[Rfam]
RNA sequence: CAGCGUUCUCAGGGCGGGGUGAAAGUCCCCACCGGCGGUAUCCGUGCCUGUGGGUGCGGGAGCCCGCGAGCGCCACCGGGCCGCCAGGCCAGGUGGGUCAGCAGACCUGGUGCGACGCCAGGGCCGACGGUCACAGUCCGGAUGAAAGAGAGCGCGA
Numbered sequence: 001c002a003g004c005g006u007u008c009u010c011a012g013g014g015c016g017g018g019g020u021g022a023a024a025g026u027c028c029c030c031a032c033c034g035g036c037g038g039u040a041u042c043c044g045u046g047c048c049u050g051u052g053g054g055u056g057c058g059g060g061a062g063c064c065c066g067c068g069a070g071c072g073c074c075a076c077c078g079g080g081c082c083g084c085c086a087g088g089c090c091a092g093g094u095g096g097g098u099c100a101g102c103a104g105a106c107c108u109g110g111u112g113c114g115a116c117g118c119c120a121g122g123g124c125c126g127a128c129g130g131u132c133a134c135a136g137u138c139c140g141g142a143u144g145a146a147a148g149a150g151a152g153c154g155c156g157a
Stems, first nucleotide, its partner, number of pairs: 003155008017029003031137002033126002035067004062124002070102002106122005128140003